[Rfam]
RNA sequence: UGCUCCGGUGCCCCCAGCCGUCCCCCAAGCAAGAACUCGGGGGAAAUCACCCCACCAAGCCCCACCCCUCCCGCCCGCAGGGCGUGAUCACUCGGGCGGGUGAACAUUCGCUGCUCAGCUGGCUUUUCGGGCCCUCGGCACCUCUACGCUCAGCGCAACACAACCCGAAAAAAGCUUCGGCCCCCGCCGGGAUUGCCGUCCCAGUGCGAGGGCCUGACCACCAAGGAAGAACAGACCUUCCCG
Numbered sequence: 001u002g003c004u005c006c007g008g009u010g011c012c013c014c015c016a017g018c019c020g021u022c023c024c025c026c027a028a029g030c031a032a033g034a035a036c037u038c039g040g041g042g043g044a045a046a047u048c049a050c051c052c053c054a055c056c057a058a059g060c061c062c063c064a065c066c067c068c069u070c071c072c073g074c075c076c077g078c079a080g081g082g083c084g085u086g087a088u089c090a091c092u093c094g095g096g097c098g099g100g101u102g103a104a105c106a107u108u109c110g111c112u113g114c115u116c117a118g119c120u121g122g123c124u125u126u127u128c129g130g131g132c133c134c135u136c137g138g139c140a141c142c143u144c145u146a147c148g149c150u151c152a153g154c155g156c157a158a159c160a161c162a163a164c165c166c167g168a169a170a171a172a173a174g175c176u177u178c179g180g181c182c183c184c185c186g187c188c189g190g191g192a193u194u195g196c197c198g199u200c201c202c203a204g205u206g207c208g209a210g211g212g213c214c215u216g217a218c219c220a221c222c223a224a225g226g227a228a229g230a231a232c233a234g235a236c237c238u239u240c241c242c243g
Base pairs, nucleotide, nucleotide: 007222008221009220010219017074018073020072088103089102090101091100092099093098118154119153120152121151122150179214180213181212182211183210185208186207187206189202190201191200192199225241226240227239228238229237
The record is a 243-nucleotide sequence from Streptomyces pseudogriseolus, which matches "Streptomyces sRNA 4677" in Rfam. For this family Rfam cites "Complex intra-operonic dynamics mediated by a small RNA in Streptomyces coelicolor" (Hindra et al., PLoS One, 2014). Located in the intergenic region between anti-sigma factor SCO4677 gene and a putative regulatory protein gene SCO4676. scr4677 expression requires the SCO4677 activity and scr4677 sRNA itself seem to affect the levels of the SCO4676-associated transcripts. Lineage of the source: Bacteria > Bacillati > Actinomycetes > Streptomycetaceae > Streptomyces pseudogriseolus. The base pairs follow the family's consensus structure.